[Rfam]
RNA sequence: UUUUCCCUGCGGCGUGCGCCAAGGCAUACAUUCCUUUGAACCAAUAAGUUCGCUUAAGGUCGUCGGGAGUGCAGCAGGAGCGAGCGUUCCUUUGGAACCGCACCCGAAGCUGCCCGAGGCGGCCGCCUUGUUUGACAAGGUUCAAGCGGAUUGAGCCGAAACGCCGCCUGCGGGGAAUCC
Numbered sequence: 001u002u003u004u005c006c007c008u009g010c011g012g013c014g015u016g017c018g019c020c021a022a023g024g025c026a027u028a029c030a031u032u033c034c035u036u037u038g039a040a041c042c043a044a045u046a047a048g049u050u051c052g053c054u055u056a057a058g059g060u061c062g063u064c065g066g067g068a069g070u071g072c073a074g075c076a077g078g079a080g081c082g083a084g085c086g087u088u089c090c091u092u093u094g095g096a097a098c099c100g101c102a103c104c105c106g107a108a109g110c111u112g113c114c115c116g117a118g119g120c121g122g123c124c125g126c127c128u129u130g131u132u133u134g135a136c137a138a139g140g141u142u143c144a145a146g147c148g149g150a151u152u153g154a155g156c157c158g159a160a161a162c163g164c165c166g167c168c169u170g171c172g173g174g175g176a177a178u179c180c
Stems, first nucleotide, its partner, number of pairs: 003177009012167003017163002032150003035146001037144006058124003062120003067115001069114001071113005080103001086098004
Shown here is a 180-nucleotide RNA sequence from Kingella potus, a member of the family "6S / SsrS RNA".
Rfam describes the family as follows. E. coli 6S RNA was the first non coding RNA to be sequenced, but its function was unknown until recently. It consists of 184 nucleotides that fold into an extended hairpin structure with a large single-stranded internal bulge. The 6S RNA specifically associates with RNA polymerase holoenzyme containing the sigma70 specificity factor.
The literature on the family includes a 2000 paper in Cell by Wassarman and Storz, "6S RNA regulates E. coli RNA polymerase activity".